[Rfam]
RNA sequence: CGGGGUCACAUGGAGUAGCGAAAGCGAAAGACGACCCACGCAAAAGGAGAAAUGCUUCCCUGGGUGUAAAUCCCUAAAACUGCCCUCUGAUGCCCUUGCACGGACGCUGCUUGCAUGGCGGGGCGAUAUGCCUACCCCCGUUUCAUGUGCCGGGGCAAAGCAGAUUAGACGGCAUCCUACACCACAUCUGUACGGAGGUGCGAAUAACUAUAUGACAAGCG
Number, nucleotide and partner (000 for none) at each position: 001c000002g000003g000004g036005g035006u034007c033008a000009c000010a000011u000012g000013g000014a000015g000016u000017a000018g000019c024020g000021a000022a000023a000024g019025c000026g000027a000028a000029a000030g000031a000032c000033g007034a006035c005036c004037c000038a000039c000040g000041c000042a000043a000044a000045a000046g000047g000048a000049g000050a000051a000052a000053u000054g000055c000056u000057u000058c000059c000060c000061u000062g000063g075064g074065u000066g072067u000068a000069a000070a000071u000072c066073c000074c064075u063076a000077a000078a000079a000080c000081u000082g201083c200084c198085c197086u196087c195088u194089g193090a000091u192092g156093c155094c154095c153096u152097u000098g150099c149100a148101c147102g000103g000104a000105c000106g114107c113108u000109g000110c000111u000112u000113g107114c106115a000116u000117g142118g141119c140120g139121g138122g137123g136124c000125g000126a000127u000128a000129u000130g000131c000132c000133u000134a000135c000136c123137c122138c121139c120140g119141u118142u117143u000144c000145a000146u000147g101148u100149g099150c098151c000152g096153g095154g094155g093156c092157a000158a000159a000160g191161c190162a189163g188164a187165u000166u186167a178168g177169a000170c000171g000172g000173c000174a000175u000176c000177c168178u167179a000180c000181a000182c000183c000184a000185c000186a166187u164188c163189u162190g161191u160192a091193c089194g088195g087196a086197g085198g084199u000200g083201c082202g000203a000204a000205u000206a000207a000208c000209u000210a000211u000212a000213u000214g000215a000216c000217a000218a000219g000220c000221g000

This 221-nucleotide RNA belongs to the Rfam family "RT-2 RNA". The family's consensus secondary structure is taken from published work.